[Rfam]
RNA sequence: AACUCAUCCUGAGCAGUGCCUCCAGAUGGCUC
Numbered sequence: 001a002a003c004u005c006a007u008c009c010u011g012a013g014c015a016g017u018g019c020c021u022c023c024a025g026a027u028g029g030c031u032c
Base pairs, nucleotide, nucleotide: 002031004029005028006027007026009025010024011023012021013020014018